A member of the RNA family "Burkholderia RNA 7 (anti-hemB)" from Sulfuriferula plumbiphila, 92 nucleotides long. On this family, see Weinberg et al., Nucleic Acids Res 2007: "Identification of 22 candidate structured RNAs in bacteria using the CMfinder comparative genomics pipeline". From the family's description: This RNA motif was identified by computational search in b-proteobacteria Burkholderia. Co-purified with Hfq, expression confirmed by Northern blot. Pairs were carried over by alignment from the consensus structure, which is taken from published work.
RNA sequence: UCUCCCGCUUCUCCUCCCUGAGCGGGCGCCUCGACACCAGUUGAGGCAUUUUCGGCCCCGGUUUUACUCCCCUUUAACCGGGGCUUUUUUAU
Numbered sequence: 001u002c003u004c005c006c007g008c009u010u011c012u013c014c015u016c017c018c019u020g021a022g023c024g025g026g027c028g029c030c031u032c033g034a035c036a037c038c039a040g041u042u043g044a045g046g047c048a049u050u051u052u053c054g055g056c057c058c059c060g061g062u063u064u065u066a067c068u069c070c071c072c073u074u075u076a077a078c079c080g081g082g083g084c085u086u087u088u089u090u091a092u
Stems, first nucleotide, its partner, number of pairs: 004026006028047007055084008
About this RNA:
The family's RNA type in Rfam is small RNA.